c-di-AMP riboswitch aptamer (ydaO/yuaA leader): a 137-nucleotide sequence from Paenibacillus tyrphae. A search with the family's covariance model found it, with a score of 71 bits. The source organism's lineage runs through Bacteria, Bacillati, Caryophanales, Paenibacillaceae and Paenibacillus. The literature on the family includes a 2004 paper in Proc Natl Acad Sci U S A by Barrick et al., "New RNA motifs suggest an expanded scope for riboswitches in bacterial genetic control". Rfam links the family to the GO terms regulation of gene expression and cyclic-di-AMP binding.
RNA sequence: AAGAAAAUUUUGCCGAAUUUCUGUUCGCAGAAAACGGGGGAUCCAUUUUUGGGUGAAUUGAUCUCGCAGUAGAGUGAUCAUAGGGAACCUUCAACCGAACCCUCAAGCUAACCUCGUAGGCACCGGAAGGGGAAACU
Numbered sequence: 001a002a003g004a005a006a007a008u009u010u011u012g013c014c015g016a017a018u019u020u021c022u023g024u025u026c027g028c029a030g031a032a033a034a035c036g037g038g039g040g041a042u043c044c045a046u047u048u049u050u051g052g053g054u055g056a057a058u059u060g061a062u063c064u065c066g067c068a069g070u071a072g073a074g075u076g077a078u079c080a081u082a083g084g085g086a087a088c089c090u091u092c093a094a095c096c097g098a099a100c101c102c103u104c105a106a107g108c109u110a111a112c113c114u115c116g117u118a119g120g121c122a123c124c125g126g127a128a129g130g131g132g133a134a135a136c137u
Stems, first nucleotide, its partner, number of pairs: 011122004018033005034117006045049001051102003059080004083096002